[Rfam]
RNA sequence: UUUCCGACGGAUUUCUGACGGAAUUUAAUUUUUAUUUAAAAAAAAUUAAAUUCCGUCAAUAAUCUGUCGGAAAUUUCAAAGAAAAUUGG
Numbered sequence: 001u002u003u004c005c006g007a008c009g010g011a012u013u014u015c016u017g018a019c020g021g022a023a024u025u026u027a028a029u030u031u032u033u034a035u036u037u038a039a040a041a042a043a044a045a046u047u048a049a050a051u052u053c054c055g056u057c058a059a060u061a062a063u064c065u066g067u068c069g070g071a072a073a074u075u076u077c078a079a080a081g082a083a084a085a086u087u088g089g
Stems, first nucleotide, its partner, number of pairs: 012084005020077006026048006052071004